[Rfam]
RNA sequence: GGCAGAGUAGAUAAUUGUGGGUCAUGUGUCCGAGAAACGGGGAGUUGAUCUCGGAACGGAAACUUCACGGAGCAAGCCGGCCGGGAAGUUGCCGUACAGUUAUCGCAUCCCGCUGCU
Numbered sequence: 001g002g003c004a005g006a007g008u009a010g011a012u013a014a015u016u017g018u019g020g021g022u023c024a025u026g027u028g029u030c031c032g033a034g035a036a037a038c039g040g041g042g043a044g045u046u047g048a049u050c051u052c053g054g055a056a057c058g059g060a061a062a063c064u065u066c067a068c069g070g071a072g073c074a075a076g077c078c079g080g081c082c083g084g085g086a087a088g089u090u091g092c093c094g095u096a097c098a099g100u101u102a103u104c105g106c107a108u109c110c111c112g113c114u115g116c117u
Stems, first nucleotide, its partner, number of pairs: 001117005010104010020093003026057002029055007040110003044106001061090006
Dot-bracket structure: (((((....(((((((((((((...((.(((((((....[[[.[....)))))))))...((((((..................))))))))).)))))))))).].]]]..)))))
Annotation
The family of this 117-nucleotide RNA from Ruminococcaceae bacterium BL-6 is "THF (Tetrahydrofolate) riboswitch aptamer". It scores 77 bits against the family's covariance model. About the family: Tetrahydrofolate (THF) riboswitch was first reported for Ames et al. as an RNA motif in 5' untranslated (5'-UTR)regions of folate transport and biosynthesis genes in Firmicutes genomes.